[Rfam]
RNA: Bacterial small signal recognition particle RNA
Organism: Defluviicoccus sp.
RNA sequence: GGAGGCUGACGGCGGACGGAUCCUCGCCAAUCCGGUCAGGUCCGGAAGGAAGCAGCCGUAACGAGUUUCGAGCCGGGUCGCCGCUCAGUCUCCCAC
Numbered sequence: 001g002g003a004g005g006c007u008g009a010c011g012g013c014g015g016a017c018g019g020a021u022c023c024u025c026g027c028c029a030a031u032c033c034g035g036u037c038a039g040g041u042c043c044g045g046a047a048g049g050a051a052g053c054a055g056c057c058g059u060a061a062c063g064a065g066u067u068u069c070g071a072g073c074c075g076g077g078u079c080g081c082c083g084c085u086c087a088g089u090c091u092c093c094c095a096c
Stems, first nucleotide, its partner, number of pairs: 004090005010083005017075003021071002023065004033058004041050003